[Rfam]
RNA: MIR4371 microRNA precursor family
Organism: Glycine soja
RNA sequence: CCAUUAAGUGAUAAUGUGACAGACAGAGUGUCAUGUCAUCAUGUCUUAUCACCGACAUGCCAUCGAAGGGGGUGACAUGGCAAUGAGGUUUCCGUGACUAGCUGUGAUGAUGUGACACUCCGUCUGCCAUGUCAUCACUUAACGGAA
Numbered sequence: 001c002c003a004u005u006a007a008g009u010g011a012u013a014a015u016g017u018g019a020c021a022g023a024c025a026g027a028g029u030g031u032c033a034u035g036u037c038a039u040c041a042u043g044u045c046u047u048a049u050c051a052c053c054g055a056c057a058u059g060c061c062a063u064c065g066a067a068g069g070g071g072g073u074g075a076c077a078u079g080g081c082a083a084u085g086a087g088g089u090u091u092c093c094g095u096g097a098c099u100a101g102c103u104g105u106g107a108u109g110a111u112g113u114g115a116c117a118c119u120c121c122g123u124c125u126g127c128c129a130u131g132u133c134a135u136c137a138c139u140u141a142a143c144g145g146a147a
Base pairs, nucleotide, nucleotide: 001145002144004142005141006140007139008138009137010136011135012134014132015131016130017129018128020126021125022124023123024122026120027119028118029117030116031115032114033113034112035111036110037109038108039107040106041105042104043103045101046100049097050096051095052094054092055091057089058088059076061074062073063072